[Rfam]
RNA sequence: GAAACGUGAACCAGAAAGUUGGUACUAUCCGCGAUCUGGAGCGUCUUCUGGCAACGGAAGGCUGCG
Numbered sequence: 001g002a003a004a005c006g007u008g009a010a011c012c013a014g015a016a017a018g019u020u021g022g023u024a025c026u027a028u029c030c031g032c033g034a035u036c037u038g039g040a041g042c043g044u045c046u047u048c049u050g051g052c053a054a055c056g057g058a059a060g061g062c063u064g065c066g
Base pairs, nucleotide, nucleotide: 011039012038013037014036015035043062044061045060046059047058048057049056050055
Rfam assigns this 66-nucleotide RNA from Bifidobacterium choloepi to the family "Transposase-2 RNA". The base pairs follow the family's consensus structure, which is taken from published work. Lineage of the source: Bacteria > Bacillati > Actinomycetes > Bifidobacteriales > Bifidobacterium. It scores 44 bits against the family's covariance model.